[Rfam]
RNA sequence: CCUAAUACAAUCACCCGAGUCUACCCGCCUGUGGCUACUUGGUACAUUAUCCUUGGUAUUAAGGGCUAUGGCGGUUGACCGACAGGGUAUACCUUGAAAAGGGUAUGCCUCCCAGUGCGGAAAGGGUUUAGUGCUUUAAAUGG
Numbered sequence: 001c002c003u004a005a006u007a008c009a010a011u012c013a014c015c016c017g018a019g020u021c022u023a024c025c026c027g028c029c030u031g032u033g034g035c036u037a038c039u040u041g042g043u044a045c046a047u048u049a050u051c052c053u054u055g056g057u058a059u060u061a062a063g064g065g066c067u068a069u070g071g072c073g074g075u076u077g078a079c080c081g082a083c084a085g086g087g088u089a090u091a092c093c094u095u096g097a098a099a100a101g102g103g104u105a106u107g108c109c110u111c112c113c114a115g116u117g118c119g120g121a122a123a124g125g126g127u128u129u130a131g132u133g134c135u136u137u138a139a140a141u142g143g
Base pairs, nucleotide, nucleotide: 004136013127014126015125016124019079020078021077023075024074025073027072028071029070033067034066035065036064085110086109087108088107089106090105091104092103093102094101095100111120112119
RNA: Molybdenum/Tungsten riboswitch aptamer (Moco RNA motif)
Organism: Pelotomaculum thermopropionicum